Overview
Cyanobacteria transfer-messenger RNA: a 283-nucleotide RNA from Cyanobium usitatum. NCBI's taxonomy places the organism under Bacteria, Bacillati, Prochlorococcaceae, Cyanobium, Cyanobium usitatum. Rfam describes the family as follows. Bacterial tmRNA, also known as 10Sa RNA or SsrA, is named for its dual tRNA and mRNA-like properties. Its role is to liberate the mRNA from a stalled ribosome. To accomplish this part of the tmRNA is used as a reading frame that ends in a translation stop signal. The broken mRNA is replaced in the ribosome by the tmRNA and translation of the tmRNA leads to addition of a proteolysis tag to the incomplete protein enabling recognition by a protease. Recently a number of permuted tmRNA genes have been found encoded in two parts. tmRNAs have been identified in eubacteria and some chloroplasts but are absent from archaeal and eukaryote nuclear genomes.

RNA sequence: CUGCCACAAUGAACCAGUCAGGUUUCGGCCUGACUAGGUGGCUCACACCAGUGCUUCGGACAGCGGUUCGAUUCCGCUCAGCUCCACUUAAACGGGGCUGCAAUGGUUUCGACGGGGUAUAAGGAGGGUGACUGAAGCCUGCUCGGUAAGAGCACACACGUAACAGCGAACAACAUCGUUGCUUUCUCCCGUCAGACCGCCCCUGUGGCUGCCUGACCCUGUAAGGGAGAUGGGGUGAGGUCAGCCUUAUCACCCAAAUGAUCCAUGGGCCCUGGAAGGGGCC
Numbered sequence: 001c002u003g004c005c006a007c008a009a010u011g012a013a014c015c016a017g018u019c020a021g022g023u024u025u026c027g028g029c030c031u032g033a034c035u036a037g038g039u040g041g042c043u044c045a046c047a048c049c050a051g052u053g054c055u056u057c058g059g060a061c062a063g064c065g066g067u068u069c070g071a072u073u074c075c076g077c078u079c080a081g082c083u084c085c086a087c088u089u090a091a092a093c094g095g096g097g098c099u100g101c102a103a104u105g106g107u108u109u110c111g112a113c114g115g116g117g118u119a120u121a122a123g124g125a126g127g128g129u130g131a132c133u134g135a136a137g138c139c140u141g142c143u144c145g146g147u148a149a150g151a152g153c154a155c156a157c158a159c160g161u162a163a164c165a166g167c168g169a170a171c172a173a174c175a176u177c178g179u180u181g182c183u184u185u186c187u188c189c190c191g192u193c194a195g196a197c198c199g200c201c202c203c204u205g206u207g208g209c210u211g212c213c214u215g216a217c218c219c220u221g222u223a224a225g226g227g228a229g230a231u232g233g234g235g236u237g238a239g240g241u242c243a244g245c246c247u248u249a250u251c252a253c254c255c256a257a258a259u260g261a262u263c264c265a266u267g268g269g270c271c272c273u274g275g276a277a278g279g280g281g282c283c
Stems, first nucleotide, its partner, number of pairs: 017034007037133003041129004048124002051120008062078005079100007140154005195214001199209003226255002229251008268283006